[Rfam]
RNA sequence: GAGGAUCGAGGAGGCGACGACCCGCGACCGGCGCAGACGGUCACCGAUCCCCCGACGGGGGAACGGUCGCGGCGAGCCAGUGGUGAGACCGCCCUCGGUCGUG
Numbered sequence: 001g002a003g004g005a006u007c008g009a010g011g012a013g014g015c016g017a018c019g020a021c022c023c024g025c026g027a028c029c030g031g032c033g034c035a036g037a038c039g040g041u042c043a044c045c046g047a048u049c050c051c052c053c054g055a056c057g058g059g060g061g062a063a064c065g066g067u068c069g070c071g072g073c074g075a076g077c078c079a080g081u082g083g084u085g086a087g088a089c090c091g092c093c094c095u096c097g098g099u100c101g102u103g
Base pairs, nucleotide, nucleotide: 002102004100005099006098007097008096009095010094011093013078014077015076022072023071024070025069026068027067028066029065039090040089041086042085043084044083045082

The record is a 103-nucleotide RNA sequence, which matches "c-di-GMP-II-GAG riboswitch aptamer" in Rfam. On this family, see Weinberg et al., Proc Natl Acad Sci U S A 2017: "Bioinformatic analysis of riboswitch structures uncovers variant classes with altered ligand specificity". It is one of the family's seed sequences. Rfam links the family to the GO terms regulation of gene expression and cyclic-di-GMP binding.